[Rfam]
The family of this 87-nucleotide RNA sequence from Gossypium gossypioides is "MIR7486 microRNA precursor family".
Lineage of the source: Eukaryota > Streptophyta > Pentapetalae > malvids > Gossypium.
RNA sequence: CACGUCAGCGCGCUUUGCUGACGUGGCAUAAAAUCGCUUCCUAGAGGGCGCGAUUUGCUGUCGUGUUAGCAAAACGCGCUGACGUGA
Numbered sequence: 001c002a003c004g005u006c007a008g009c010g011c012g013c014u015u016u017g018c019u020g021a022c023g024u025g026g027c028a029u030a031a032a033a034u035c036g037c038u039u040c041c042u043a044g045a046g047g048g049c050g051c052g053a054u055u056u057g058c059u060g061u062c063g064u065g066u067u068a069g070c071a072a073a074a075c076g077c078g079c080u081g082a083c084g085u086g087a
Stems, first nucleotide, its partner, number of pairs: 001086012014073008023064006031056007040047002